[Rfam]
RNA sequence: UUGUUUGCUGAUGUAGCAUCAUCAAGAUUCACAUGUAAAUGCUGGUGGAUGGUACUCUUACGUGUUAACGUUUGGGCUCUGGCUCUGAUAUCAUGUUAAAGUUUCAUAUCGAAAUUAAUUGGCAAUGAGAUGAGUAGUCCAACAAGUAUUUAAACAAUUCCCGAGACAAUAACAUAAACGAUGUAGGACUUACUUUCCAACAUUAUGCAAUGCAAGUGCUCUUCCAAUCCAUUGGCUUGCUUGAAGUGAGAAUCUUGAUGAUGCUGCAUCGGCCAUACA
Dot-bracket structure: .........(((((((((((((((((((((.((.....................................................................................................................................................................................................................)).))))))))))))))))))))).........
RNA: mir-172 microRNA precursor family